[Rfam]
Nucleotides: 107
Stems, first nucleotide, its partner, number of pairs: 002106004012095009023084024049058002
Number, partner (000 for none) and nucleotide at each position: 001000u002106g003105g004104a005103u006000a007000u008000c009000g010000c011000c012095u013094u014093u015092u016091g017090c018089u019088a020087u021000c022000c023084c024083u025082g026081a027080c028079c029078a030077a031076u032075a033074a034073c035072g036071c037070a038069a039068u040067g041066a042065c043064a044063u045062g046061u047000a048000u049058g050057a051000u052000a053000a054000c055000u056000u057050u058049u059000c060000c061046a062045c063044g064043u065042g066041u067040c068039a069038u070037u071036g072035u073034g074033u075032u076031a077030u078029u079028g080027g081026u082025c083024g084023g085000a086000a087020a088019u089018a090017g091016c092015a093014a094013a095012a096000c097000a098000a099000u100000g101000u102000u103005a104004u105003c106002u107000c
This 107-nucleotide RNA sequence from Prunus armeniaca belongs to the Rfam family "MIR6274 microRNA precursor family". Lineage of the source: Eukaryota > Streptophytina > Mesangiospermae > fabids > Prunus. Rfam links the family to the GO terms RISC complex and miRNA-mediated post-transcriptional gene silencing. A search with the family's covariance model found it, with a score of 82 bits.